[Rfam]
RNA: Group II catalytic intron D1-D4-2
RNA sequence: GAUGGUAGGUCCAUCAGGGUCGUUGUAUAGGCGAUGGCCCUAAACCAACUAAAGGUGCUUUGAUUAAUAGUCUUGAUACUGAGCGUUUAGGAGAAUCCAAUCCAUGAGAGAGGU
Numbered sequence: 001g002a003u004g005g006u007a008g009g010u011c012c013a014u015c016a017g018g019g020u021c022g023u024u025g026u027a028u029a030g031g032c033g034a035u036g037g038c039c040c041u042a043a044a045c046c047a048a049c050u051a052a053a054g055g056u057g058c059u060u061u062g063a064u065u066a067a068u069a070g071u072c073u074u075g076a077u078a079c080u081g082a083g084c085g086u087u088u089a090g091g092a093g094a095a096u097c098c099a100a101u102c103c104a105u106g107a108g109a110g111a112g113g114u
Base pairs, nucleotide, nucleotide: 001015002014003013004012005011016041017040018039019038020037021036023034024033025032026031049090050089051088052087053086054080055079057077059075062072063071064070097113098112101109